[Rfam]
RNA sequence: GGUGUCGGCUGAAUCAGAGAUUGGCUGGCACAAAUUAAAACCCUUUUUAUUAGGAAUGAGUUAUGUCUCUGAAUGCAGAAACUAAAGCAGCAAUCGUUGCUGAAUACGCACAAGGCGCA
Numbered sequence: 001g002g003u004g005u006c007g008g009c010u011g012a013a014u015c016a017g018a019g020a021u022u023g024g025c026u027g028g029c030a031c032a033a034a035u036u037a038a039a040a041c042c043c044u045u046u047u048u049a050u051u052a053g054g055a056a057u058g059a060g061u062u063a064u065g066u067c068u069c070u071g072a073a074u075g076c077a078g079a080a081a082c083u084a085a086a087g088c089a090g091c092a093a094u095c096g097u098u099g100c101u102g103a104a105u106a107c108g109c110a111c112a113a114g115g116c117g118c119a
Stems, first nucleotide, its partner, number of pairs: 007026006050073002053070003